The record is a 77-nucleotide RNA from Alligator sinensis, which matches "Mammalian CPEB3 ribozyme" in Rfam.
[Rfam]
RNA sequence: CAUCACAAGUUUGAGGCCAUAGCAGAAGUGCUCAUGGCAUGGCCCUGUCAGAUUCCAAUGAAUUGGUGAAUUCUGCU
Numbered sequence: 001c002a003u004c005a006c007a008a009g010u011u012u013g014a015g016g017c018c019a020u021a022g023c024a025g026a027a028g029u030g031c032u033c034a035u036g037g038c039a040u041g042g043c044c045c046u047g048u049c050a051g052a053u054u055c056c057a058a059u060g061a062a063u064u065g066g067u068g069a070a071u072u073c074u075g076c077u
Base pairs, nucleotide, nucleotide: 013045015044016043017042018041021077022076023075024074025073026072027071028040029039030038049066051064052063053062054061055060
Rfam's curators write: The mammalian CPEB3 ribozyme is a self cleaving RNA located in the second intron of the CPEB3 gene which belongs to a family of genes regulating messenger RNA polyadenylation.